A member of the RNA family "Iron response element II" from Pantherophis guttatus, 31 nucleotides long. It scores 35 bits against the family's covariance model. For this family Rfam cites "A cytosolic protein binds to structural elements within the iron regulatory region of the transferrin receptor mRNA" (Koeller et al., Proc Natl Acad Sci U S A, 1989). IRE, TFRC, SLC40A1, SDHB, SLC11A2, CDC42BPA, ACO2, ALAS2_H.SAPIENS, CDC14A, EPAS1, ALAS2, qoxD, Hao1, NDUFS1, transferrin, Aconitate. The family has 30 seed sequences and 5,197 matches in Rfam 15.1.

[Rfam]
Nucleotides: 031
Stems, first nucleotide, its partner, number of pairs: 001031007009024005014018001
Number, partner (000 for none) and nucleotide at each position: 001031a002030a003029u004028u005027u006026a007025u008000c009024u010023u011022g012021a013020a014018c015000a016000g017000u018014g019000a020013u021012u022011u023010a024009a025007a026006u027005a028004a029003a030002u031001u